[Rfam]
RNA: Bacterial RNase P class A
RNA sequence: GAAAGCAGGCGAGGUGGUUGCAAUCGGAUCCCCUGGAUCGGAUUGAGGAAAGUCCGGGCUCCCCGAUGGCCAGGCUUGCUGGGUAACGCCCAGUGCGGGUGACCGUGAGGAGAGUGCCACAGAAACACACCGCCGAUGGCCCCAUGGGGAUUCCCCAGGCACAGGCAAGGGUGCAAAGGUGCGGUAAGAGCGCACCAGCAGCAUCGAGAGGUGCUGGCUCGGUAAACCCCGGCUGGGAGCAAGGCCAAGGAACAACGGUUGGCCAUCAGCCCUGUUCCGAUUGAACGCGCCGCUCGAGGUCACCGGUAACGGUGAUCCCAGAUAGAUAACCACCCACCCUCUACGGAGUGGUGAACAGAACCCGGCUUAUGUCCUGCUUUCACCC
Numbered sequence: 001g002a003a004a005g006c007a008g009g010c011g012a013g014g015u016g017g018u019u020g021c022a023a024u025c026g027g028a029u030c031c032c033c034u035g036g037a038u039c040g041g042a043u044u045g046a047g048g049a050a051a052g053u054c055c056g057g058g059c060u061c062c063c064c065g066a067u068g069g070c071c072a073g074g075c076u077u078g079c080u081g082g083g084u085a086a087c088g089c090c091c092a093g094u095g096c097g098g099g100u101g102a103c104c105g106u107g108a109g110g111a112g113a114g115u116g117c118c119a120c121a122g123a124a125a126c127a128c129a130c131c132g133c134c135g136a137u138g139g140c141c142c143c144a145u146g147g148g149g150a151u152u153c154c155c156c157a158g159g160c161a162c163a164g165g166c167a168a169g170g171g172u173g174c175a176a177a178g179g180u181g182c183g184g185u186a187a188g189a190g191c192g193c194a195c196c197a198g199c200a201g202c203a204u205c206g207a208g209a210g211g212u213g214c215u216g217g218c219u220c221g222g223u224a225a226a227c228c229c230c231g232g233c234u235g236g237g238a239g240c241a242a243g244g245c246c247a248a249g250g251a252a253c254a255a256c257g258g259u260u261g262g263c264c265a266u267c268a269g270c271c272c273u274g275u276u277c278c279g280a281u282u283g284a285a286c287g288c289g290c291c292g293c294u295c296g297a298g299g300u301c302a303c304c305g306g307u308a309a310c311g312g313u314g315a316u317c318c319c320a321g322a323u324a325g326a327u328a329a330c331c332a333c334c335c336a337c338c339c340u341c342u343a344c345g346g347a348g349u350g351g352u353g354a355a356c357a358g359a360a361c362c363c364g365g366c367u368u369a370u371g372u373c374c375u376g377c378u379u380u381c382a383c384c385c
Stems, first nucleotide, its partner, number of pairs: 001381009011370001013334007021045005027039003050368003054365005059239004068266001073234003077231002079093005094108001095106004109229002114227002116223003130170002132166003137161002140158001178196006198218001199216007243291003249278006257271005298317008